The record is a 172-nucleotide sequence from Shewanella algae, which matches "Lysine riboswitch aptamer" in Rfam. Lineage of the source: Bacteria > Pseudomonadati > Gammaproteobacteria > Alteromonadales > Shewanella. Pairs were carried over by alignment from the consensus structure, which is taken from published work.
RNA sequence: CCUUUGAGUAGAGGCGCGCUGCCUAAGAGUAACCGGGAAGAGGGUGAUGCCUUUGAGGCCCGGGGAAAGGAGUCAGCGCCGAAGUAGCCAGGCCAUCAAACCUAGCUGCUGGUUCUGUAUCUAACAGGUGCAGGACUGCCAUAGUCAUCCACUAUGGAGCGCUACCUGAAGG
Numbered sequence: 001c002c003u004u005u006g007a008g009u010a011g012a013g014g015c016g017c018g019c020u021g022c023c024u025a026a027g028a029g030u031a032a033c034c035g036g037g038a039a040g041a042g043g044g045u046g047a048u049g050c051c052u053u054u055g056a057g058g059c060c061c062g063g064g065g066a067a068a069g070g071a072g073u074c075a076g077c078g079c080c081g082a083a084g085u086a087g088c089c090a091g092g093c094c095a096u097c098a099a100a101c102c103u104a105g106c107u108g109c110u111g112g113u114u115c116u117g118u119a120u121c122u123a124a125c126a127g128g129u130g131c132a133g134g135a136c137u138g139c140c141a142u143a144g145u146c147a148u149c150c151a152c153u154a155u156g157g158a159g160c161g162c163u164a165c166c167u168g169a170a171g172g
Stems, first nucleotide, its partner, number of pairs: 006167001008165004016079006023072002033063005083110006090103003111137011139157007